This 104-nucleotide RNA sequence from Nitrosomonas sp. Nm58 belongs to the Rfam family "Glycine riboswitch aptamer". The source organism's lineage runs through Bacteria, Pseudomonadati, Nitrosomonadales, Nitrosomonadaceae and Nitrosomonas.

[Rfam]
RNA sequence: GACAGGCAAUCUGGAGAGCGCCGAACAGUGAGUUCAGCCACCGAAGGGGCACACGGACAGAGUUCUACCGUAAAACUCUCAGGUAAAAGGACAGAGGGGUGAAG
Numbered sequence: 001g002a003c004a005g006g007c008a009a010u011c012u013g014g015a016g017a018g019c020g021c022c023g024a025a026c027a028g029u030g031a032g033u034u035c036a037g038c039c040a041c042c043g044a045a046g047g048g049g050c051a052c053a054c055g056g057a058c059a060g061a062g063u064u065c066u067a068c069c070g071u072a073a074a075a076c077u078c079u080c081a082g083g084u085a086a087a088a089g090g091a092c093a094g095a096g097g098g099g100u101g102a103a104g
Stems, first nucleotide, its partner, number of pairs: 007098001010095004020038002023035003040084003043080002047078003053071004